This 139-nucleotide sequence from Tupaia belangeri belongs to the Rfam family "Small nucleolar RNA SNORA38".

RNA sequence: ACACUCUACAAAGGCGUGUCUGUGGUUCCCUGUCUUUGGACACGUAAGAAUUGGAGGCAAAGAAAUGCAGAUUUGGAGGAAUCUGGGGCCUGGUUGUUCCCUGGUGGCUCAAAAGCUCAAGAUCAACCAUCCCAUAAAU
Numbered sequence: 001a002c003a004c005u006c007u008a009c010a011a012a013g014g015c016g017u018g019u020c021u022g023u024g025g026u027u028c029c030c031u032g033u034c035u036u037u038g039g040a041c042a043c044g045u046a047a048g049a050a051u052u053g054g055a056g057g058c059a060a061a062g063a064a065a066u067g068c069a070g071a072u073u074u075g076g077a078g079g080a081a082u083c084u085g086g087g088g089c090c091u092g093g094u095u096g097u098u099c100c101c102u103g104g105u106g107g108c109u110c111a112a113a114a115g116c117u118c119a120a121g122a123u124c125a126a127c128c129a130u131c132c133c134a135u136a137a138a139u
Stems, first nucleotide, its partner, number of pairs: 002057001005054002015044007024030002070131002073129001092116001094114002097111001

Notes:
The base pairs follow the family's consensus structure, which was predicted with RNAfold. Rfam 15.1 lists 628 matches to the family in 149 species. By type it is an H/ACA-box small nucleolar RNA. ACA38 is a member of the H/ACA class of snoRNA that guide the sites of modification of uridines to pseudouridines. NCBI's taxonomy places the organism under Eukaryota, Vertebrata, Gnathostomata, Tupaiidae, Tupaia belangeri.